[Rfam]
Nucleotides: 068
Stems, first nucleotide, its partner, number of pairs: 014035001016033004
Number, partner (000 for none) and nucleotide at each position: 001000u002000a003000u004000a005000u006000u007000u008000g009000c010000g011000c012000c013000u014035c015000u016033g017032u018031u019030u020000a021000u022000a023000a024000c025000a026000g027000a028000u029000u030019a031018a032017a033016u034000u035014g036000u037000a038000c039000a040000u041000a042000a043000u044000a045000a046000u047000u048000a049000u050000u051000u052000a053000a054000a055000a056000c057000a058000a059000u060000g061000u062000u063000u064000g065000a066000a067000u068000g
Annotation:
S15-Flavobacteria ribosomal protein leader: a 68-nucleotide RNA sequence. On this family, see Eckert and Weinberg, BMC Microbiol 2020: "Discovery of 20 novel ribosomal leader candidates in bacteria and archaea". The sequence is in the family's curated seed alignment. Pairs were carried over by alignment from the consensus structure, which is taken from published work. It is annotated as a cis-regulatory leader.